[Rfam]
RNA: Plastid-rpl16 group II-D1 intron
RNA sequence: AAGAGCCUCGAGCCAGUAAAUACUAAAAAGAUUUGACUCAAUAACAAA
Numbered sequence: 001a002a003g004a005g006c007c008u009c010g011a012g013c014c015a016g017u018a019a020a021u022a023c024u025a026a027a028a029a030g031a032u033u034u035g036a037c038u039c040a041a042u043a044a045c046a047a048a
Base pairs, nucleotide, nucleotide: 008041010039011038012037014035015034016033017031